A member of the RNA family "mir-2788 microRNA precursor family" from Microctonus aethiopoides, 102 nucleotides long. Lineage of the source: Eukaryota > Arthropoda > Altocrustacea > Endopterygota > Microctonus.

RNA sequence: UAUAUUUGUUGCGACAGAGGUGGGGUUUCCAUGCGGCAUGUGCCUUGUAAUAUUUAAUAAACGCAAUGCCCUUAGAAAUCCCAAAAAUGUCCAACGUUAAUC
Number, nucleotide and partner (000 for none) at each position: 001u000002a000003u000004a000005u000006u000007u000008g098009u000010u096011g095012c000013g000014a090015c089016a088017g000018a000019g000020g000021u083022g082023g081024g080025g079026u078027u077028u076029c075030c000031a073032u000033g071034c000035g070036g069037c068038a067039u066040g000041u065042g064043c063044c000045u000046u000047g000048u000049a000050a000051u000052a000053u000054u000055u000056a000057a000058u000059a000060a000061a000062c000063g043064c042065a041066a039067u038068g037069c036070c035071c033072u000073u031074a000075g029076a028077a027078a026079u025080c024081c023082c022083a021084a000085a000086a000087a000088u016089g015090u014091c000092c000093a000094a000095c011096g010097u000098u008099a000100a000101u000102c000